[Rfam]
The record is a 600-nucleotide part of an RNA from Isosphaera pallida, which matches "Bacterial large subunit ribosomal RNA" in Rfam. It is one of the family's seed sequences. Lineage of the source: Bacteria > Pseudomonadati > Planctomycetota > Isosphaera > Isosphaera pallida. The literature on the family includes a 2001 paper in Science by Yusupov et al., "Crystal structure of the ribosome at 5.5 A resolution".

Nucleotides: 600
Base pairs, nucleotide, nucleotide: 005022006021007020008019009018025599026598027597028596029595030594031593032592034591035590036589038586039585046420047419048418049417051416052415053412054411055410056409057408059215060214061213062212066207067206069204070203071202072201075178076177077176078175079174081172082171083170084169086167087166088165089164090163092161102160103159104158105157106156109143110142111141118137119136120135121134122133123132124131125130182195183194184193218230219229220228221227231253232252233251234250235249236248254401256358257357262316263315264314265313266312267311268296269295271289272288273287274286275285276284297306298305321344322343323342324341327338328337329336346355347354348353369395370394371393372392373391374390375389377388378387429470430469431468433467434464435463436462437461438460439459440458444454445453481556482554483553484552485551486548487545488544489543490542491541494519495518497514498513499512500511501510502509521535522534523533524532525531562580563579564578565577566575567574568573
Number, partner (000 for none) and nucleotide at each position: 001000u002000a003000g004000c005022c006021g007020u008019g009018g010000u011000g012000a013000a014000g015000a016000u017000g018009c019008c020007a021006c022005g023000u024000u025599c026598c027597c028596g029595c030594g031593g032592u033000c034591a035590g036589a037000c038586g039585g040000a041000a042000a043000g044000a045000c046420c047419c048418c049417g050000u051416g052415a053412a054411c055410c056409u057408u058000g059215a060214c061213u062212g063000c064000a065000g066207g067206u068000u069204g070203g071202c072201g073000c074000u075178g076177g077176g078175c079174c080000u081172g082171g083170g084169u085000u086167c087166g088165u089164u090163u091000u092161g093000u094000g095000u096000a097000g098000g099000a100000u101000a102160g103159g104158u105157g106156g107000g108000a109143g110142g111141c112000u113000g114000u115000g116000a117000a118137u119136c120135c121134g122133c123132u124131c125130c126000g127000u128000c129000a130125g131124g132123a133122g134121u135120g136119g137118a138000g139000g140000a141111g142110c143109c144000g145000u146000c147000g148000g149000u150000g151000a152000a153000a154000u155000a156106c157105c158104a159103c160102c161092c162000u163090g164089a165088a166087c167086g168000c169084a170083c171082u172081u173000u174079g175078g176077u177076c178075c179000u180000c181000a182195c183194c184193g185000g186000c187000a188000u189000c190000a191000g192000c193184c194183g195182g196000g197000a198000c199000c200000a201072c202071g203070c204069u205000c206067a207066u208000c209000g210000g211000g212062c213061a214060g215059u216000u217000u218230g219229a220228c221227u222000g223000g224000g225000g226000c227221g228220g229219u230218c231253u232252c233251c234250u235249c236248c237000u238000a239000a240000a241000g242000a243000g244000u245000a246000a247000c248236g249235g250234a251233g252232g253231a254401g255000c256358g257357c258000a259000a260000u261000g262316g263315u264314a265313c266312c267311c268296u269295c270000a271289g272288c273287c274286c275285g276284g277000u278000c279000g280000g281000c282000a283000a284276u285275c286274g287273g288272g289271c290000a291000a292000c293000a294000c295269g296268a297306g298305c299000g300000c301000a302000a303000g304000a305298g306297u307000a308000g309000a310000a311267g312266g313265g314264u315263g316262c317000c318000u319000g320000a321344c322343u323342g324341u325000g326000a327338g328337a329336g330000g331000g332000c333000u334000g335000c336329c337328u338327c339000g340000a341324a342323c343322a344321g345000a346355g347354a348353c349000g350000a351000a352000a353348g354347u355346c356000g357257g358256c359000u360000c361000u362000a363000g364000u365000g366000a367000u368000c369395c370394g371393g372392c373391g374390g375389u376000u377388c378387c379000g380000u381000a382000a383000g384000g385000a386000a387378g388377g389375g390374c391373c392372g393371u394370c395369g396000c397000u398000c399000a400000a401254c402000a403000g404000a405000u406000a407000a408057a409056a410055g411054g412053u413000a414000c415052u416051c417049c418048g419047g420046g421000g422000a423000u424000a425000a426000c427000a428000g429470g430469c431468u432000a433467a434464u435463c436462u437461c438460c439459u440458c441000c442000g443000a444454g445453c446000g447000u448000c449000c450000a451000u452000a453445g454444c455000g456000g457000c458440g459439a460438g461437g462436a463435g464434g465000u466000u467433u468431g469430g470429c471000a472000c473000c474000u475000c476000g477000a478000u479000g480000u481556c482554g483553g484552c485551u486548c487545a488544u489543c490542g491541c492000a493000u494519c495518c496000u497514g498513g499512g500511g501510c502509u503000g504000g505000a506000g507000a508000a509502g510501g511500u512499c513498c514497c515000a516000a517000g518495g519494g520000u521535u522534u523533g524532g525531c526000u527000g528000u529000u530000c531525g532524c533523c534522a535521a536000u537000g538000a539000a540000a541491g542490c543489g544488g545487u546000a547000c548486g549000c550000g551485a552484g553483c554482u555000g556481g557000g558000u559000u560000c561000a562580g563579a564578c565577c566575g567574u568573c569000g570000u571000g572000a573568g574567a575566c576000a577565g578564g579563u580562c581000g582000g583000u584000c585039c586038c587000u588000a589036u590035c591034u592032g593031c594030c595029g596028u597027g598026g599025g600000c